[Rfam]
RNA sequence: AAUCCAAUGAUGCUUAUAAAUUUUCUGACAUCUCUAAUGAACCGUUGUGAUUCAAACUUUUUAAAUAUUUAAUUUACUGAUGCU
Numbered sequence: 001a002a003u004c005c006a007a008u009g010a011u012g013c014u015u016a017u018a019a020a021u022u023u024u025c026u027g028a029c030a031u032c033u034c035u036a037a038u039g040a041a042c043c044g045u046u047g048u049g050a051u052u053c054a055a056a057c058u059u060u061u062u063a064a065a066u067a068u069u070u071a072a073u074u075u076a077c078u079g080a081u082g083c084u
Stems, first nucleotide, its partner, number of pairs: 001084001003082001037048004
RNA: Small nucleolar RNA Me28S-Gm3255